Rfam assigns this 87-nucleotide RNA sequence from Macaca mulatta to the family "mir-515 microRNA precursor family".
The family is grouped with related families in Rfam's "mir-290 clan".
The base pairs follow the family's consensus structure, which was predicted with RNAalifold.
The source organism's lineage runs through Eukaryota, Chordata, Gnathostomata, Euarchontoglires and Macaca.
On this family, see Bentwich et al., Nat Genet 2005: "Identification of hundreds of conserved and nonconserved human microRNAs".
Rfam links the family to the GO terms RISC complex and miRNA-mediated post-transcriptional gene silencing.
RNA sequence: UCUCAUGCAGUCAUUCUCCAAUGGGAAGCACCUUCUGUGGUCUGAAAGCAAGCAGAGGGCCUCCUUUUGGAGCAUUACUGUUUGAGA
Number, nucleotide and partner (000 for none) at each position: 001u087002c086003u085004c084005a083006u000007g081008c080009a079010g078011u077012c000013a075014u074015u000016c072017u071018c070019c000020a068021a067022u000023g065024g064025g063026a062027a000028g060029c059030a000031c057032c000033u055034u054035c000036u000037g000038u052039g000040g000041u000042c000043u000044g000045a000046a000047a000048g000049c000050a000051a000052g038053c000054a034055g033056a000057g031058g000059g029060c028061c000062u026063c025064c024065u023066u000067u021068u020069g000070g018071a017072g016073c000074a014075u013076u000077a011078c010079u009080g008081u007082u000083u005084g004085a003086g002087a001